[Rfam]
RNA: Small nucleolar RNA Z152/R70/R12/
RNA sequence: AGUGCAAUGAUGAGAUGAAACACCUAAGUGUUUAUGGGCAGUGGACGUUACCCUAAUGUUUCGCCGUGAGCCUGUAUUUUAACGACUUCUCCUUCCACUGAGCACU
Dot-bracket structure: (((((................................................................................................)))))
Numbered sequence: 001a002g003u004g005c006a007a008u009g010a011u012g013a014g015a016u017g018a019a020a021c022a023c024c025u026a027a028g029u030g031u032u033u034a035u036g037g038g039c040a041g042u043g044g045a046c047g048u049u050a051c052c053c054u055a056a057u058g059u060u061u062c063g064c065c066g067u068g069a070g071c072c073u074g075u076a077u078u079u080u081a082a083c084g085a086c087u088u089c090u091c092c093u094u095c096c097a098c099u100g101a102g103c104a105c106u
Stems, first nucleotide, its partner, number of pairs: 001106005